Shown here is an 80-nucleotide RNA sequence from Novosphingobium sp. TH158, a member of the family "Makes More Granules Regulator RNA (mmgR)". Clan: suhB sRNA clan. From the family's description: SuhB later renamed mmgR (makes more granules regulator) was a putative non-coding RNA found multiple times in the Agrobacterium tumefaciens genome and related alpha-proteobacteria. NCBI's taxonomy places the organism under Bacteria, Alphaproteobacteria, Sphingomonadales, Sphingomonadaceae, Novosphingobium. The family's RNA type in Rfam is small RNA.
RNA sequence: AGGGCGGGCCUUUCAGGCAUCCUCUCCCAAAGACUUCCAAAGGCCCGGUCGGAAACGCCCGGGCCAUUUUUUUGCGCUUU
Numbered sequence: 001a002g003g004g005c006g007g008g009c010c011u012u013u014c015a016g017g018c019a020u021c022c023u024c025u026c027c028c029a030a031a032g033a034c035u036u037c038c039a040a041a042g043g044c045c046c047g048g049u050c051g052g053a054a055a056c057g058c059c060c061g062g063g064c065c066a067u068u069u070u071u072u073u074g075c076g077c078u079u080u
Base pairs, nucleotide, nucleotide: 008018009017010016011015042065043064044063045062046061047060048059050057
Dot-bracket structure: .......((((...)))).......................(((((((.(......).)))))))...............